[Rfam]
RNA sequence: UUAGAUUUUCUUCAUUUUCUUCUGGAAUUUUUCUGGGACUCUUGUAGUUGAAAGGUUGAUGGAGAUGAUAUAAAGAUGAAGAAGAGGAAGAA
Numbered sequence: 001u002u003a004g005a006u007u008u009u010c011u012u013c014a015u016u017u018u019c020u021u022c023u024g025g026a027a028u029u030u031u032u033c034u035g036g037g038a039c040u041c042u043u044g045u046a047g048u049u050g051a052a053a054g055g056u057u058g059a060u061g062g063a064g065a066u067g068a069u070a071u072a073a074a075g076a077u078g079a080a081g082a083a084g085a086g087g088a089a090g091a092a
Stems, first nucleotide, its partner, number of pairs: 006085013037057004042051002
RNA: MIR5298 microRNA precursor family